[Rfam]
RNA sequence: GGUGCUAGAAGUGUGGCGUGUAAUAAGCGAUUCGGACCCGGGGGCGGUACCCGGCGCCUCCACCAAAAACACACUUCAAGUUCUUCUCAUGAGUGUGCUUUUGCUGGGGGCGAAAUAGGAUCGACGAGCGUCUAAAGACGCCACUGGUCUAAAAGGCCGCUUCGAAACACCGACAAAUGUCGAAAAUGACACUGCUGGCGAGAAUGGCGGUAUCCCCGCCUUUCUCGCGAAA
Numbered sequence: 001g002g003u004g005c006u007a008g009a010a011g012u013g014u015g016g017c018g019u020g021u022a023a024u025a026a027g028c029g030a031u032u033c034g035g036a037c038c039c040g041g042g043g044g045c046g047g048u049a050c051c052c053g054g055c056g057c058c059u060c061c062a063c064c065a066a067a068a069a070c071a072c073a074c075u076u077c078a079a080g081u082u083c084u085u086c087u088c089a090u091g092a093g094u095g096u097g098c099u100u101u102u103g104c105u106g107g108g109g110g111c112g113a114a115a116u117a118g119g120a121u122c123g124a125c126g127a128g129c130g131u132c133u134a135a136a137g138a139c140g141c142c143a144c145u146g147g148u149c150u151a152a153a154a155g156g157c158c159g160c161u162u163c164g165a166a167a168c169a170c171c172g173a174c175a176a177a178u179g180u181c182g183a184a185a186a187u188g189a190c191a192c193u194g195c196u197g198g199c200g201a202g203a204a205u206g207g208c209g210g211u212a213u214c215c216c217c218g219c220c221u222u223u224c225u226c227g228c229g230a231a232a
Stems, first nucleotide, its partner, number of pairs: 001150002005146001016141004028130002032127003038054005055112007